[Rfam]
RNA sequence: UAUAGGAGGAAACUAAAUGAACGAAGUUCAUUUUAAGGGAUGUUUCCGACGAAAUGCCGCUGACCGAAGGGAGGGGGCAAUACAUAUU
Dot-bracket structure: .......((((((..((((((.....)))))).........))))))........(((.((..((...))..)).)))..........
Source information:
Rfam assigns this 88-nucleotide RNA sequence from Eubacterium sp. CAG:161 to the family "GA-cis RNA". It scores 88 bits against the family's covariance model. The family's RNA type in Rfam is small RNA.